[Rfam]
Notes: This 101-nucleotide RNA sequence from Bombilactobacillus mellifer belongs to the Rfam family "23S methyl RNA motif". Gene Ontology term of the family: regulation of gene expression. A reference for the family is Weinberg et al. (2007), "Identification of 22 candidate structured RNAs in bacteria using the CMfinder comparative genomics pipeline", Nucleic Acids Res. A search with the family's covariance model found it, with a score of 59 bits. Rfam classes the family as a cis-regulatory element.
RNA sequence: AGUUCGUGUGUUUUUAUCAAACUCAAAUUUAAUAAAAGUAUACGAUAUAAGUUAAUUAACGUAUUUUCUCGCUGUGUUAGACCGAGGAAAUGCGUUUUUUU
Numbered sequence: 001a002g003u004u005c006g007u008g009u010g011u012u013u014u015u016a017u018c019a020a021a022c023u024c025a026a027a028u029u030u031a032a033u034a035a036a037a038g039u040a041u042a043c044g045a046u047a048u049a050a051g052u053u054a055a056u057u058a059a060c061g062u063a064u065u066u067u068c069u070c071g072c073u074g075u076g077u078u079a080g081a082c083c084g085a086g087g088a089a090a091u092g093c094g095u096u097u098u099u100u101u
Base pairs, nucleotide, nucleotide: 004045005044006043007042008041009040010039011038012037013036014035015034016033017032019030058096059095060094061093062092063091064090065089066088067087068086069085070084071083076082